Notes: Rfam assigns this 179-nucleotide RNA from Aegilops tauschii to the family "Small nucleolar RNA Z112". NCBI's taxonomy places the organism under Eukaryota, commelinids, Poales, Pooideae, Aegilops tauschii. The family is grouped with related families in Rfam's "SNORD49 clan". The family's RNA type in Rfam is C/D-box small nucleolar RNA. A reference for the family is Liang et al. (2002), "A novel gene organization: intronic snoRNA gene clusters from Oryza sativa", Nucleic Acids Res. It scores 113 bits against the family's covariance model.

RNA sequence: AUCCCAGUGAAAAUUCUUAGACCAGGAAUGCCGUAUGACACUGUAAACAACAGCUGUUACUCACCACUGCACAUGUCUUCCUUUGGCUAUAACCUUUGUGGUUUGGUCAGGGCUGGAUGUCCAUUUGUACCUGGUUUGGUUCAUCUGUGUGCUUGAUUUUAAAUCGGUCUCAUAUUGUU
Numbered sequence: 001a002u003c004c005c006a007g008u009g010a011a012a013a014u015u016c017u018u019a020g021a022c023c024a025g026g027a028a029u030g031c032c033g034u035a036u037g038a039c040a041c042u043g044u045a046a047a048c049a050a051c052a053g054c055u056g057u058u059a060c061u062c063a064c065c066a067c068u069g070c071a072c073a074u075g076u077c078u079u080c081c082u083u084u085g086g087c088u089a090u091a092a093c094c095u096u097u098g099u100g101g102u103u104u105g106g107u108c109a110g111g112g113c114u115g116g117a118u119g120u121c122c123a124u125u126u127g128u129a130c131c132u133g134g135u136u137u138g139g140u141u142c143a144u145c146u147g148u149g150u151g152c153u154u155g156a157u158u159u160u161a162a163a164u165c166g167g168u169c170u171c172a173u174a175u176u177g178u179u
Stems, first nucleotide, its partner, number of pairs: 001179001003177001068129004073124003076117003080112002085108005091103004